A member of the RNA family "c-di-AMP riboswitch aptamer (ydaO/yuaA leader)" from Paenalicyclobacillus ferrooxydans, 162 nucleotides long.
[Rfam]
RNA sequence: UUCUAUCAUCAGCCGAAUCACAGCAAUGUGUACGGGGGAACUUCGCUUGUCGUCUGUUCAAGGCAAGCUUGGGGUGAAGCGAGAAUGGCCCAGCCAUUCUCCCGGGCGUCUUCGUCGUCCGAAUCCGACAACUAACCUCGGAGGCAUUCCACGAAAGGAUGA
Numbered sequence: 001u002u003c004u005a006u007c008a009u010c011a012g013c014c015g016a017a018u019c020a021c022a023g024c025a026a027u028g029u030g031u032a033c034g035g036g037g038g039a040a041c042u043u044c045g046c047u048u049g050u051c052g053u054c055u056g057u058u059c060a061a062g063g064c065a066a067g068c069u070u071g072g073g074g075u076g077a078a079g080c081g082a083g084a085a086u087g088g089c090c091c092a093g094c095c096a097u098u099c100u101c102c103c104g105g106g107c108g109u110c111u112u113c114g115u116c117g118u119c120c121g122a123a124u125c126c127g128a129c130a131a132c133u134a135a136c137c138u139c140g141g142a143g144g145c146a147u148u149c150c151a152c153g154a155a156a157g158g159a160u161g162a
Base pairs, nucleotide, nucleotide: 012145013144014143019030020029033140034139035138036137037136042071072126073125074124081101082100083099084098085097086096087095088094089093104120105119106118107117

It scores 63 bits against the family's covariance model.